[Rfam]
RNA sequence: ACUUAAAUAACAAAAAACCCAAAGCCUAACUCAGGACUUGGUAACAAUUUUUGGAGACCCUAACUUUUAUUAGUUAGGGUG
Numbered sequence: 001a002c003u004u005a006a007a008u009a010a011c012a013a014a015a016a017a018c019c020c021a022a023a024g025c026c027u028a029a030c031u032c033a034g035g036a037c038u039u040g041g042u043a044a045c046a047a048u049u050u051u052u053g054g055a056g057a058c059c060c061u062a063a064c065u066u067u068u069a070u071u072a073g074u075u076a077g078g079g080u081g
Stems, first nucleotide, its partner, number of pairs: 022039003026035002057080009
Dot-bracket structure: .....................(((.((......)).))).................(((((((((......))))))))).